[Rfam]
RNA sequence: UGUAACGGGCAAGGCUUGCCAGAGAGGACAAUAGCAUGUAUAGGUGGAAUGCGUGGAUUUCGGGAUGUAUGCGAGUAGGGUCCUCUCUGA
Number, nucleotide and partner (000 for none) at each position: 001u011002g010003u009004a000005a000006c000007g000008g000009g003010c002011a001012a000013g000014g000015c000016u000017u000018g000019c000020c000021a000022g087023a086024g085025a084026g083027g082028a081029c080030a000031a000032u000033a000034g000035c000036a000037u000038g000039u000040a000041u077042a076043g000044g000045u073046g072047g000048a000049a000050u000051g068052c067053g066054u065055g000056g000057a000058u000059u000060u000061c000062g000063g000064g000065a054066u053067g052068u051069a000070u000071g000072c046073g045074a000075g000076u042077a041078g000079g000080g029081u028082c027083c026084u025085c024086u023087c022088u000089g000090a000
Shown here is a 90-nucleotide RNA sequence from Callipepla squamata, a member of the family "Retrovirus direct repeat 1 (dr1)". About the family: This family represents the direct repeat 1 (dr1) element commonly found in the 3' UTR of Avian sarcoma, Rous sarcoma and Avian leukosis viruses (Alpharetroviruses and Avian type C retroviruses). dr1 is required for efficient viral replication and is thought to be involved in genomic RNA packaging although this may not be its only role. The match comes from Rfam's covariance-model search (63 bits). On this family, see Aschoff et al., J Virol 1999: "Point mutations in the avian sarcoma/leukosis virus 3' untranslated region result in a packaging defect". Pairs were carried over by alignment from the consensus structure, which is taken from published work. The source organism's lineage runs through Eukaryota, Metazoa, Chordata, Theropoda and Callipepla.